[Rfam]
RNA sequence: AUAAAUCUUCGGGGUUUGGUGUAAUUCCAUACCGGCGGUACAGCCCGCGAGCUAAUUAGCAUGAUUUGGUGAAAUUCCAAAGCCGACAGUAAAGUCUGGAUGAGAGAAGAUUAUU
Numbered sequence: 001a002u003a004a005a006u007c008u009u010c011g012g013g014g015u016u017u018g019g020u021g022u023a024a025u026u027c028c029a030u031a032c033c034g035g036c037g038g039u040a041c042a043g044c045c046c047g048c049g050a051g052c053u054a055a056u057u058a059g060c061a062u063g064a065u066u067u068g069g070u071g072a073a074a075u076u077c078c079a080a081a082g083c084c085g086a087c088a089g090u091a092a093a094g095u096c097u098g099g100a101u102g103a104g105a106g107a108a109g110a111u112u113a114u115u
Base pairs, nucleotide, nucleotide: 004112005111006110007109008108009107010106017029018028019027031095032094033085034084035048036047037046038045043083044082053059065081066080067079068078069077087098088097089096

The family of this 115-nucleotide RNA sequence from Malacoplasma iowae is "FMN riboswitch aptamer (RFN element)". The family's consensus secondary structure is taken from published work.